[Rfam]
RNA: FMN riboswitch aptamer (RFN element)
Organism: Absicoccus porci
RNA sequence: UAACGUCUUUGGGGCAGGGUGAAAUUCCCUACCGAUGGUAAAGUCCAUGACCCUCAUAUGAGGCUGAACUGGUGAAAUUCCAGUACCGACGGUUAGAGUCCGGAUGGGAAAAGACAAGA
Numbered sequence: 001u002a003a004c005g006u007c008u009u010u011g012g013g014g015c016a017g018g019g020u021g022a023a024a025u026u027c028c029c030u031a032c033c034g035a036u037g038g039u040a041a042a043g044u045c046c047a048u049g050a051c052c053c054u055c056a057u058a059u060g061a062g063g064c065u066g067a068a069c070u071g072g073u074g075a076a077a078u079u080c081c082a083g084u085a086c087c088g089a090c091g092g093u094u095a096g097a098g099u100c101c102g103g104a105u106g107g108g109a110a111a112a113g114a115c116a117a118g119a
Stems, first nucleotide, its partner, number of pairs: 005115006017029003031099002033088002035048004043086002052063002068084005090102003